[Rfam]
Rfam assigns this 70-nucleotide RNA from Drosophila albomicans to the family "mir-6 microRNA precursor family".
The family is grouped with related families in Rfam's "mir-6 clan".
Rfam describes the family as follows. This family consists of the microRNA (miRNA) precursor mir-6 which appears to be Drosophila specific. Animal miRNAs are transcribed as ~70nt precursors and subsequently processed by the Dicer enzyme to give a ~22nt product. In this case the mature sequence comes from the 3' arm of the precursor. The extents of the hairpin precursors are not generally known and are estimated based on hairpin prediction.
On this family, see Ambros, Cell 2001: "microRNAs: tiny regulators with great potential".
Its family is annotated with miRNA-mediated post-transcriptional gene silencing and RISC complex in the Gene Ontology.
Lineage of the source: Eukaryota > Insecta > Drosophilidae > Drosophila > Drosophila.
RNA sequence: AAAGAAAGGGAACAUUCGCUGUUGAUGUAGUUUUCAACAAUUUAUAUCACAGUGGCUGUUCUUUUUCAUU
Numbered sequence: 001a002a003a004g005a006a007a008g009g010g011a012a013c014a015u016u017c018g019c020u021g022u023u024g025a026u027g028u029a030g031u032u033u034u035c036a037a038c039a040a041u042u043u044a045u046a047u048c049a050c051a052g053u054g055g056c057u058g059u060u061c062u063u064u065u066u067c068a069u070u
Stems, first nucleotide, its partner, number of pairs: 004067002007064007016055006023049002026046004